[Rfam]
RNA sequence: UACCUUUAGUCGCUGAAUCCUAAUAGGAACGGGGGAACCAACUGUGGUGCCUUUAGGUCCACAUGGGGUGAAUCUCCUUCAGAAUCUGCAUGGAAUCUGAAGGAGUAGGGUGACUCUCAGCACCCGAAUCCGUCAGCUAACUUCGUAAGCGUCGUGAGAGGAGGU
Numbered sequence: 001u002a003c004c005u006u007u008a009g010u011c012g013c014u015g016a017a018u019c020c021u022a023a024u025a026g027g028a029a030c031g032g033g034g035g036a037a038c039c040a041a042c043u044g045u046g047g048u049g050c051c052u053u054u055a056g057g058u059c060c061a062c063a064u065g066g067g068g069u070g071a072a073u074c075u076c077c078u079u080c081a082g083a084a085u086c087u088g089c090a091u092g093g094a095a096u097c098u099g100a101a102g103g104a105g106u107a108g109g110g111u112g113a114c115u116c117u118c119a120g121c122a123c124c125c126g127a128a129u130c131c132g133u134c135a136g137c138u139a140a141c142u143u144c145g146u147a148a149g150c151g152u153c154g155u156g157a158g159a160g161g162a163g164g165u
Stems, first nucleotide, its partner, number of pairs: 011151004018028003029146006039065002066131003074105010108125004
Dot-bracket structure: ..........((((...(((.....)))((((((....((.......................))(((.....((((((((((............))))))))))..((((..........))))...))).........)))))).))))..............

Record summary: The family of this 165-nucleotide RNA from Bacillus methanolicus is "c-di-AMP riboswitch aptamer (ydaO/yuaA leader)". The organism belongs to Bacillus methanolicus, within Bacteria. Gene Ontology terms of the family: regulation of gene expression and cyclic-di-AMP binding. A search with the family's covariance model found it, with a score of 101 bits.